RNA sequence: UGCAUCUGUGAUGAAAAGUUGGCUCCCUCUACUGAAACAAAUGAGGAGAACAGCCUUAACCGUUACCCAAAUCUGAGAUGUU
Numbered sequence: 001u002g003c004a005u006c007u008g009u010g011a012u013g014a015a016a017a018g019u020u021g022g023c024u025c026c027c028u029c030u031a032c033u034g035a036a037a038c039a040a041a042u043g044a045g046g047a048g049a050a051c052a053g054c055c056u057u058a059a060c061c062g063u064u065a066c067c068c069a070a071a072u073c074u075g076a077g078a079u080g081u082u
Stems, first nucleotide, its partner, number of pairs: 002081005
This 82-nucleotide RNA from Piaya cayana belongs to the Rfam family "Small nucleolar RNA SNORD100". Rfam 15.1 lists 838 matches to the family in 626 species. The literature on the family includes a 2002 paper in Mol Cell Biol by Galardi et al., "Purified box C/D snoRNPs are able to reproduce site-specific 2'-O-methylation of target RNA in vitro". It scores 61 bits against the family's covariance model. It is annotated as a C/D-box small nucleolar RNA.